Source information:
Shown here is a 125-nucleotide RNA sequence from Brassica napus, a member of the family "MIR9563 microRNA precursor family". Pairs were carried over by alignment from the consensus structure, which was predicted with RNAalifold. A search with the family's covariance model found it, with a score of 94 bits. The source organism's lineage runs through Eukaryota, Spermatophyta, Mesangiospermae, rosids and Brassica.
RNA sequence: AGAAUAUAAAAAUCCAUGUUUUAACUUUUAACUAAAAAAUUUAAGAACCGGCUCUUAAAACUUUUAUUUAAAAACCGGUUUUUAGUUUUUUUAGUUAAAAGUUAAGAGACGGGUUCUUAUAUUCC
Numbered sequence: 001a002g003a004a005u006a007u008a009a010a011a012a013u014c015c016a017u018g019u020u021u022u023a024a025c026u027u028u029u030a031a032c033u034a035a036a037a038a039a040u041u042u043a044a045g046a047a048c049c050g051g052c053u054c055u056u057a058a059a060a061c062u063u064u065u066a067u068u069u070a071a072a073a074a075c076c077g078g079u080u081u082u083u084a085g086u087u088u089u090u091u092u093a094g095u096u097a098a099a100a101g102u103u104a105a106g107a108g109a110c111g112g113g114u115u116c117u118u119a120u121a122u123u124c125c
Base pairs, nucleotide, nucleotide: 002124003123004122005121006120007119008118009117011115012114013113014112015111017109019107020106021105022104023103024102025101026100027099028098029097030096031095032094033093034092035091036090037089038088039087041085042084043083044082045081046080047079